[Rfam]
RNA sequence: AUCAGACAGGUGCAGGCGAAUGGAGGCCGAUAUGUUCUUCGAUAAUGUGGUUAUCGCUGGCGUUGUGACAGUCGGCCUGAUGCUGCUGUUUUUCGCAGGCCUGGGUAUUUUCAUCUGGAAGGACUCGAACAAGCGCAAGCAGGGCUGAUCCUUUCCGAUACACGAGCACGCAAGGCAUUUAGGGCAACUUCGGUUGCCCAUUUUUUUU
Numbered sequence: 001a002u003c004a005g006a007c008a009g010g011u012g013c014a015g016g017c018g019a020a021u022g023g024a025g026g027c028c029g030a031u032a033u034g035u036u037c038u039u040c041g042a043u044a045a046u047g048u049g050g051u052u053a054u055c056g057c058u059g060g061c062g063u064u065g066u067g068a069c070a071g072u073c074g075g076c077c078u079g080a081u082g083c084u085g086c087u088g089u090u091u092u093u094c095g096c097a098g099g100c101c102u103g104g105g106u107a108u109u110u111u112c113a114u115c116u117g118g119a120a121g122g123a124c125u126c127g128a129a130c131a132a133g134c135g136c137a138a139g140c141a142g143g144g145c146u147g148a149u150c151c152u153u154u155c156c157g158a159u160a161c162a163c164g165a166g167c168a169c170g171c172a173a174g175g176c177a178u179u180u181a182g183g184g185c186a187a188c189u190u191c192g193g194u195u196g197c198c199c200a201u202u203u204u205u206u207u208u
Base pairs, nucleotide, nucleotide: 011097012096013095047057048056049055075084077082166176167175169174182199183198184197185196186195187194188193

Background
A member of the RNA family "PhrS" from Pseudomonas sp. 1239, 208 nucleotides long. A search with the family's covariance model found it, with a score of 188 bits. The literature on the family includes a 2006 paper in Nucleic Acids Res by Livny et al., "Identification of 17 Pseudomonas aeruginosa sRNAs and prediction of sRNA-encoding genes in 10 diverse pathogens using the bioinformatic tool sRNAPredict2".